[Rfam]
RNA sequence: AGGUCAUGCCUACUGCACCUUUAUCACGUGUAGGCACUCGGUCAUGCUGUGGGCGCUGCAAGCGCCUUAGACGUUAAUCGUCGAGGGUAUGAUGUGAGGGGGGGUUGAAUGCCCC
Numbered sequence: 001a002g003g004u005c006a007u008g009c010c011u012a013c014u015g016c017a018c019c020u021u022u023a024u025c026a027c028g029u030g031u032a033g034g035c036a037c038u039c040g041g042u043c044a045u046g047c048u049g050u051g052g053g054c055g056c057u058g059c060a061a062g063c064g065c066c067u068u069a070g071a072c073g074u075u076a077a078u079c080g081u082c083g084a085g086g087g088u089a090u091g092a093u094g095u096g097a098g099g100g101g102g103g104g105u106u107g108a109a110u111g112c113c114c115c
Stems, first nucleotide, its partner, number of pairs: 001020004007036007037098004041093008051067006070082004101115005

A member of the RNA family "epsC RNA" from Paenibacillus lutrae, 115 nucleotides long. Lineage of the source: Bacteria > Bacillati > Bacilli > Paenibacillaceae > Paenibacillus. The family's RNA type in Rfam is cis-regulatory element. The family has 30 seed sequences and 450 matches in Rfam 15.1.